Annotation
Rfam assigns this 111-nucleotide sequence from Weizmannia acidilactici to the family "Listeria sRNA rli61". The family's RNA type in Rfam is cis-regulatory element. NCBI's taxonomy places the organism under Bacteria, Bacillota, Bacilli, Bacillaceae, Heyndrickxia.
RNA sequence: UGUGAAGUUGAUCACAAGCAAACAUACCCCUUUGUUUGACCGUGAAAAAUUUCUCCCAUCCCCUUUGUUCGUGUUGAAAGAGGCCUUGCAAAUGCAAGGCCUCUUUCAUUA
Numbered sequence: 001u002g003u004g005a006a007g008u009u010g011a012u013c014a015c016a017a018g019c020a021a022a023c024a025u026a027c028c029c030c031u032u033u034g035u036u037u038g039a040c041c042g043u044g045a046a047a048a049a050u051u052u053c054u055c056c057c058a059u060c061c062c063c064u065u066u067g068u069u070c071g072u073g074u075u076g077a078a079a080g081a082g083g084c085c086u087u088g089c090a091a092a093u094g095c096a097a098g099g100c101c102u103c104u105u106u107c108a109u110u111a
Stems, first nucleotide, its partner, number of pairs: 002061001004053005013044003019038006076107014